[Rfam]
RNA sequence: AAAAUCAUGCAAAUUCAAUACAUUGCAGGAAAUCGUAGGCCU
Numbered sequence: 001a002a003a004a005u006c007a008u009g010c011a012a013a014u015u016c017a018a019u020a021c022a023u024u025g026c027a028g029g030a031a032a033u034c035g036u037a038g039g040c041c042u
Stems, first nucleotide, its partner, number of pairs: 005030002008027005
This 42-nucleotide RNA from Enterobacteriaceae bacterium strain FGI 57 belongs to the Rfam family "ES036 (CssrF) sRNA". The source organism's lineage runs through Bacteria, Pseudomonadati, Pseudomonadota, Gammaproteobacteria and Enterobacteriaceae. Rfam's curators write: Differentially expressed under several chemical stress conditions. Also identified in Shigella as CssrF. A reference for the family is Rau et al. (2015), "Differential expression of small RNAs under chemical stress and fed-batch fermentation in E. coli", BMC Genomics. A search with the family's covariance model found it, with a score of 53 bits.